[Rfam]
RNA sequence: GAAUAACAACAGGGGAGCCGGAGGAGUCCGGCUGAGAUUAAAACCGUAUCUGUUUUUAACCCUUUGACCUGAUCUGGGUAGUGCCAGCGUAGGGAUGAAUAAGCAGGAAG
Numbered sequence: 001g002a003a004u005a006a007c008a009a010c011a012g013g014g015g016a017g018c019c020g021g022a023g024g025a026g027u028c029c030g031g032c033u034g035a036g037a038u039u040a041a042a043a044c045c046g047u048a049u050c051u052g053u054u055u056u057u058a059a060c061c062c063u064u065u066g067a068c069c070u071g072a073u074c075u076g077g078g079u080a081g082u083g084c085c086a087g088c089g090u091a092g093g094g095a096u097g098a099a100u101a102a103g104c105a106g107g108a109a110g
Base pairs, nucleotide, nucleotide: 007097008096010094011063012062013061014060016057017032018031019030020029021028040055041054042053068093069092070091071090074087075086076085077084
Shown here is a 110-nucleotide RNA from Lactonifactor longoviformis, a member of the family "TPP riboswitch aptamer (THI element)". The match comes from Rfam's covariance-model search (65 bits). The family's consensus secondary structure is taken from published work. The organism belongs to Lactonifactor longoviformis, within Bacteria.